[Rfam]
RNA: Small nucleolar RNA snoR109
RNA sequence: CGGCUGCAGCUAGAUCCAACGCCUCAGAAGUUGCCUAACUGGCCGGCCGCCGUUCAAAUCGCCGACGACACUUCUGCUCACCGAACUUCUCAUGUUC
Numbered sequence: 001c002g003g004c005u006g007c008a009g010c011u012a013g014a015u016c017c018a019a020c021g022c023c024u025c026a027g028a029a030g031u032u033g034c035c036u037a038a039c040u041g042g043c044c045g046g047c048c049g050c051c052g053u054u055c056a057a058a059u060c061g062c063c064g065a066c067g068a069c070a071c072u073u074c075u076g077c078u079c080a081c082c083g084a085a086c087u088u089c090u091c092a093u094g095u096u097c
Stems, first nucleotide, its partner, number of pairs: 026090007041078003045074002049069001051067002